Record summary:
A member of the RNA family "Small nucleolar RNA snoR97" from Acer yangbiense, 108 nucleotides long. For this family Rfam cites "Experimental RNomics: identification of 140 candidates for small non-messenger RNAs in the plant Arabidopsis thaliana" (Marker et al., Curr Biol, 2002). NCBI's taxonomy places the organism under Eukaryota, Tracheophyta, Spermatophyta, rosids, Acer. Rfam links the family to the GO terms nucleolus and RNA processing.
RNA sequence: UUUUAACUAUAACACUUUAUCCUGAAAAAACUCAGAUAUGGAUAUGUUGUCAUCAGCUUCUUCUCCCGUUUGUUCACGAGUUUGGAGUUAAAUAACUUCACUAUAAUU
Number, nucleotide and partner (000 for none) at each position: 001u000002u000003u000004u000005a000006a000007c000008u000009a000010u000011a000012a000013c000014a000015c000016u000017u000018u000019a000020u000021c000022c000023u000024g000025a000026a000027a000028a000029a000030a000031c000032u000033c000034a000035g000036a000037u000038a000039u000040g000041g000042a000043u000044a000045u100046g099047u000048u000049g096050u000051c000052a000053u000054c000055a089056g088057c087058u086059u085060c084061u000062u000063c080064u079065c078066c000067c000068g000069u000070u000071u000072g000073u000074u000075c000076a000077c000078g065079a064080g063081u000082u000083u000084g060085g059086a058087g057088u056089u055090a000091a000092a000093u000094a000095a000096c049097u000098u000099c046100a045101c000102u000103a000104u000105a000106a000107u000108u000